A member of the RNA family "Bacterial large subunit ribosomal RNA" from Chromobacterium violaceum, 442 nucleotides of a longer RNA. Rfam links the family to the GO terms ribosome and structural constituent of ribosome. Pairs were carried over by alignment from the consensus structure, which is taken from published work.
[Rfam]
RNA sequence: CUCCCCGAAAACUAUUUAGGUAGUGCCUCAUGUAUCACUUCCGGGGGUAAAGCACUGUUAUGGCUAGGGGGUCAUUGCGAUUUACCAAACCAUGGCAAACUCUGAAUACCGGAAAGUGCGAGCAUGGGAGACAGACGGUGGGUGCUAACGUCCAUCGUCAAGAGGGAAACAACCCAGACCGCCAGCUAAGGUCCCAAAUGAUCAGUUAAGUGGUAAACGAAGUGGGAAGGCCUAGACAGCCAGGAUGUUGGCUUAGAAGCAGCCAUCAUUUAAAGAAAGCGUAAUAGCUCACUGGUCGAGUCGUCCUGCGCGGAAGAUGUAACGGGGCUCAAACUGAUAACCGAAGCUGCGGAUGGGCACGUAAGUGUCCGUGGUAGGGGAGCGUUCUGUAGGUCUGUGAAGGUGUCUCGUAAGGGAUGCUGGAGAUAUCAGAAGUGCGAAU
Numbered sequence: 001c002u003c004c005c006c007g008a009a010a011a012c013u014a015u016u017u018a019g020g021u022a023g024u025g026c027c028u029c030a031u032g033u034a035u036c037a038c039u040u041c042c043g044g045g046g047g048u049a050a051a052g053c054a055c056u057g058u059u060a061u062g063g064c065u066a067g068g069g070g071g072u073c074a075u076u077g078c079g080a081u082u083u084a085c086c087a088a089a090c091c092a093u094g095g096c097a098a099a100c101u102c103u104g105a106a107u108a109c110c111g112g113a114a115a116g117u118g119c120g121a122g123c124a125u126g127g128g129a130g131a132c133a134g135a136c137g138g139u140g141g142g143u144g145c146u147a148a149c150g151u152c153c154a155u156c157g158u159c160a161a162g163a164g165g166g167a168a169a170c171a172a173c174c175c176a177g178a179c180c181g182c183c184a185g186c187u188a189a190g191g192u193c194c195c196a197a198a199u200g201a202u203c204a205g206u207u208a209a210g211u212g213g214u215a216a217a218c219g220a221a222g223u224g225g226g227a228a229g230g231c232c233u234a235g236a237c238a239g240c241c242a243g244g245a246u247g248u249u250g251g252c253u254u255a256g257a258a259g260c261a262g263c264c265a266u267c268a269u270u271u272a273a274a275g276a277a278a279g280c281g282u283a284a285u286a287g288c289u290c291a292c293u294g295g296u297c298g299a300g301u302c303g304u305c306c307u308g309c310g311c312g313g314a315a316g317a318u319g320u321a322a323c324g325g326g327g328c329u330c331a332a333a334c335u336g337a338u339a340a341c342c343g344a345a346g347c348u349g350c351g352g353a354u355g356g357g358c359a360c361g362u363a364a365g366u367g368u369c370c371g372u373g374g375u376a377g378g379g380g381a382g383c384g385u386u387c388u389g390u391a392g393g394u395c396u397g398u399g400a401a402g403g404u405g406u407c408u409c410g411u412a413a414g415g416g417a418u419g420c421u422g423g424a425g426a427u428a429u430c431a432g433a434a435g436u437g438c439g440a441a442u
Base pairs, nucleotide, nucleotide: 001382002381003380004379005378006377011024012023013022014021015020026130027128028127029126030125031124032123033122035121036118037117038116039114040113041112042111043110044109050103051101052100056097057096058095060093061092062091063090067086068085069083070082071081072080073079134159135158136157137156138155139154140153141152142151143150164175165174166173179352180351181350182349184348185347186346190342191341192340199339201338202337203336204335205334206333218312219311222309223308224307225306226305227304229302230301231300239296240295241294242293243292245269246268247267250264251263252262270274275290279288280287353372354371355370356369357368358367359366360365383437385434386433387432388431389430393427394426395425402421403420404419405418406417407416408415409414